[Rfam]
RNA: tRNA
RNA sequence: GCCUGUGGCGCAAUGGAUAACGCGCCUGACUACGGAUCAGGAGAUUCCAGGUCCGAAUCCUGGCAGGC
Numbered sequence: 001g002c003c004u005g006u007g008g009c010g011c012a013a014u015g016g017a018u019a020a021c022g023c024g025c026c027u028g029a030c031u032a033c034g035g036a037u038c039a040g041g042a043g044a045u046u047c048c049a050g051g052u053c054c055g056a057a058u059c060c061u062g063g064c065a066g067g068c
Stems, first nucleotide, its partner, number of pairs: 001068005008023003025041005047063005